[Rfam]
Molybdenum/Tungsten riboswitch aptamer (Moco RNA motif): a 144-nucleotide RNA sequence from Veronia pacifica. The family's consensus secondary structure is taken from published work. It scores 65 bits against the family's covariance model. On this family, see Regulski et al., Mol Microbiol 2008: "in molybdenum cofactor and tungsten cofactor metabolism".

RNA sequence: CAGGCGACCAAAAACCGAAGCUUUCUUUGCUACGUCAGGGCUUAGCCCGAUAUGUAAAGUUGGCCGUGAUCUCGCGAUCACCAGGGCGGGCAAUAGAAAUGUUCCCGUCUCCCGAACUUGGAAAGGUGAUUAGUUGCAAUGCAA
Numbered sequence: 001c002a003g004g005c006g007a008c009c010a011a012a013a014a015c016c017g018a019a020g021c022u023u024u025c026u027u028u029g030c031u032a033c034g035u036c037a038g039g040g041c042u043u044a045g046c047c048c049g050a051u052a053u054g055u056a057a058a059g060u061u062g063g064c065c066g067u068g069a070u071c072u073c074g075c076g077a078u079c080a081c082c083a084g085g086g087c088g089g090g091c092a093a094u095a096g097a098a099a100u101g102u103u104c105c106c107g108u109c110u111c112c113c114g115a116a117c118u119u120g121g122a123a124a125g126g127u128g129a130u131u132a133g134u135u136g137c138a139a140u141g142c143a144a
Base pairs, nucleotide, nucleotide: 004137006135011130014127015126016125020064021063022062025059026058027057028056029055030054034051035050036049066081067080068079069078070077084110085109086108087107088106089105092103093102094101095100111121112120